[Rfam]
RNA sequence: GCUUUUCCCCCCAGGCUUGUUGGUGUAUACUACAGAGAAGCCUACAUGAUCCCGGGGGUGAAAGGC
Numbered sequence: 001g002c003u004u005u006u007c008c009c010c011c012c013a014g015g016c017u018u019g020u021u022g023g024u025g026u027a028u029a030c031u032a033c034a035g036a037g038a039a040g041c042c043u044a045c046a047u048g049a050u051c052c053c054g055g056g057g058g059u060g061a062a063a064g065g066c
Base pairs, nucleotide, nucleotide: 001066002065003064007058008057009056010055014051015050018046019045022042023041024040025033026032
MAT2A 3'UTR stem loop A: a 66-nucleotide sequence from Merluccius polli. The base pairs follow the family's consensus structure, which is taken from published work. A reference for the family is Parker et al. (2011), "New families of human regulatory RNA structures identified by comparative analysis of vertebrate genomes", Genome Res. It scores 66 bits against the family's covariance model. Rfam classes the family as a cis-regulatory element.